A member of the RNA family "Lysine riboswitch aptamer" from Paraliobacillus sp. PM-2, 177 nucleotides long. The organism belongs to Paraliobacillus, within Bacteria. The family's consensus secondary structure is taken from published work. It scores 98 bits against the family's covariance model.
RNA sequence: CGAUGAGAUAGAGGCGCAAUAUAAAAAUAGUACACUAUUGGAGUUGACUACGCAGAUAAUAGUGGAAAGGGUUAUAUUGCCGAAGUGGGUUUCAGCGUUUGUCAGCGCUUCCUUACUGGUAUAUCUUUGAAUAAGAGAUAUACUGUCAUGUCUUUCACGUGAUGAGCUGUUGAUCGA
Numbered sequence: 001c002g003a004u005g006a007g008a009u010a011g012a013g014g015c016g017c018a019a020u021a022u023a024a025a026a027a028u029a030g031u032a033c034a035c036u037a038u039u040g041g042a043g044u045u046g047a048c049u050a051c052g053c054a055g056a057u058a059a060u061a062g063u064g065g066a067a068a069g070g071g072u073u074a075u076a077u078u079g080c081c082g083a084a085g086u087g088g089g090u091u092u093c094a095g096c097g098u099u100u101g102u103c104a105g106c107g108c109u110u111c112c113u114u115a116c117u118g119g120u121a122u123a124u125c126u127u128u129g130a131a132u133a134a135g136a137g138a139u140a141u142a143c144u145g146u147c148a149u150g151u152c153u154u155u156c157a158c159g160u161g162a163u164g165a166g167c168u169g170u171u172g173a174u175c176g177a
Stems, first nucleotide, its partner, number of pairs: 007171005016080009033064008084117006094109004118144011146162005